[Rfam]
RNA sequence: ACGGGUCAAAUGCAGUAGGAAACGAACCGGACCCUUUGUGAAAGGAGAGAUACUUCCCUGGCGAGAGCCUAAAACUGCCCUUUGUGGCCCCUGCACGGACGCUGCUUGCAUGGCGGGGUUAUUGUGCUACCCCCGUUUCAUGUGCCGGGGCUACGCGGUUUAGCCGCACACCUACACCACAACCGCACGGAGGCGCGAAUACUUAUUAUGACCAGC
Numbered sequence: 001a002c003g004g005g006u007c008a009a010a011u012g013c014a015g016u017a018g019g020a021a022a023c024g025a026a027c028c029g030g031a032c033c034c035u036u037u038g039u040g041a042a043a044g045g046a047g048a049g050a051u052a053c054u055u056c057c058c059u060g061g062c063g064a065g066a067g068c069c070u071a072a073a074a075c076u077g078c079c080c081u082u083u084g085u086g087g088c089c090c091c092u093g094c095a096c097g098g099a100c101g102c103u104g105c106u107u108g109c110a111u112g113g114c115g116g117g118g119u120u121a122u123u124g125u126g127c128u129a130c131c132c133c134c135g136u137u138u139c140a141u142g143u144g145c146c147g148g149g150g151c152u153a154c155g156c157g158g159u160u161u162a163g164c165c166g167c168a169c170a171c172c173u174a175c176a177c178c179a180c181a182a183c184c185g186c187a188c189g190g191a192g193g194c195g196c197g198a199a200u201a202c203u204u205a206u207u208a209u210g211a212c213c214a215g216c
Base pairs, nucleotide, nucleotide: 004033005032006031007030060069061068062067077196078195079193080192081191082190083189084188087151088150089149090148091147093145094144095143096142101109102108112137113136114135115134116133117132118131155186156185157184158183159182161181162173163172

This 216-nucleotide RNA sequence belongs to the Rfam family "RT-2 RNA".